RNA: drz-agam-1 ribozyme
Nucleotides: 079
Stems, first nucleotide, its partner, number of pairs: 012079003016075001018073002021033003045067002049063005
Number, partner (000 for none) and nucleotide at each position: 001000u002000a003000c004000u005000a006000c007000c008000a009000a010000a011000c012079c013078c014077u015000a016075u017000c018073u019072c020000c021033a022032c023031c024000u025000c026000c027000a028000c029000g030000u031023g032022g033021u034000g035000a036000c037000c038000g039000c040000u041000g042000g043000g044000a045067g046066c047000u048000c049063u050062u051061u052060c053059u054000u055000a056000a057000c058000g059053a060052g061051a062050a063049g064000a065000u066046g067045c068000a069000c070000a071000c072019g073018g074000a075016g076000a077014a078013g079012g